This 99-nucleotide RNA from Ruminococcus bovis belongs to the Rfam family "Bacterial small signal recognition particle RNA".
On this family, see Rosenblad et al., Nucleic Acids Res 2003: "SRPDB: Signal Recognition Particle Database".
The base pairs follow the family's consensus structure, which is taken from published work.
The family's RNA type in Rfam is non-coding RNA gene.
It scores 61 bits against the family's covariance model.

RNA sequence: CGACAGGCCCUAUACGAUUGAGGCCUGUGAAUCAUGUCAGGCAGGGAACUGAGCAGCAUUAAGCAGUGUUCUCGAUGCGAUAUAGUAAGUCUGCCGUUC
Numbered sequence: 001c002g003a004c005a006g007g008c009c010c011u012a013u014a015c016g017a018u019u020g021a022g023g024c025c026u027g028u029g030a031a032u033c034a035u036g037u038c039a040g041g042c043a044g045g046g047a048a049c050u051g052a053g054c055a056g057c058a059u060u061a062a063g064c065a066g067u068g069u070u071c072u073c074g075a076u077g078c079g080a081u082a083u084a085g086u087a088a089g090u091c092u093g094c095c096g097u098u099c
Base pairs, nucleotide, nucleotide: 004093005092006091007090008089010085011084012083013082014081015077017076018075019074020073021072022071025066026065027064028063034059035058036057037056042051043050044049